[Rfam]
RNA: mir-2774 microRNA precursor family
RNA sequence: ACAACAUCUGGACCAUCGCGUCUGUCUACCGAGCAAUAUCACCCGUUCGGUGGAAGAUCUUUCCUUUCGUCGG
Dot-bracket structure: ...((....(((..(((.......((((((((((..........)))))))))).)))...)))....))...